[Rfam]
RNA: mir-2774 microRNA precursor family
Organism: Bombyx mori
RNA sequence: AUGAUUCGGACCGUCGGACUACCGAGCAAUAUCACCCGCUCGGUGGAAGAUCUUCCCUUUGUCGU
Numbered sequence: 001a002u003g004a005u006u007c008g009g010a011c012c013g014u015c016g017g018a019c020u021a022c023c024g025a026g027c028a029a030u031a032u033c034a035c036c037c038g039c040u041c042g043g044u045g046g047a048a049g050a051u052c053u054u055c056c057c058u059u060u061g062u063c064g065u
Base pairs, nucleotide, nucleotide: 001062002061004060008056009055010054013051014050015049019046020045021044022043023042024041025040026039027038